RNA sequence: UUCUUAUCAAGAGAGGCAGAGGGACUGGCCCUGUGAUGCCCGACAACCUGAAUUUAUAUUCAAGGUGUUAAUUCCAGCAGGUAAAACCUGAGAGAUGAGAA
Numbered sequence: 001u002u003c004u005u006a007u008c009a010a011g012a013g014a015g016g017c018a019g020a021g022g023g024a025c026u027g028g029c030c031c032u033g034u035g036a037u038g039c040c041c042g043a044c045a046a047c048c049u050g051a052a053u054u055u056a057u058a059u060u061c062a063a064g065g066u067g068u069u070a071a072u073u074c075c076a077g078c079a080g081g082u083a084a085a086a087c088c089u090g091a092g093a094g095a096u097g098a099g100a101a
Stems, first nucleotide, its partner, number of pairs: 001101008013041001015040003021031003025077004042069004047065002049062004073093001078090005